This 105-nucleotide sequence from Neopusillimonas aestuarii belongs to the Rfam family "TPP riboswitch aptamer (THI element)".
The base pairs follow the family's consensus structure, which is taken from published work.
NCBI's taxonomy places the organism under Bacteria, Pseudomonadati, Pseudomonadota, Alcaligenaceae, Neopusillimonas.
Rfam links the family to the GO term thiamine pyrophosphate binding.

Nucleotides: 105
Base pairs, nucleotide, nucleotide: 006093007092008091009090010089011056012055013054014053016050017043019041020040021039062086063085064084065083067080068079069078070077
Number, partner (000 for none) and nucleotide at each position: 001000c002000g003000u004000u005000a006093u007092c008091g009090c010089u011056a012055g013054g014053g015000g016050u017043g018000u019041c020040g021039c022000c023000c024000g025000g026000u027000c028000a029000u030000u031000u032000a033000c034000c035000g036000u037000a038000g039021g040020c041019g042000u043017c044000u045000g046000a047000g048000a049000g050016a051000g052000u053014c054013c055012c056011u057000u058000g059000g060000a061000a062086c063085c064084u065083g066000u067080u068079g069078a070077g071000a072000u073000c074000a075000u076000c077070c078069u079068c080067g081000c082000g083065c084064a085063g086062g087000a088000a089010a090009g091008c092007g093006a094000c095000c096000u097000u098000c099000g100000u101000c102000u103000u104000g105000a
The match comes from Rfam's covariance-model search (55 bits).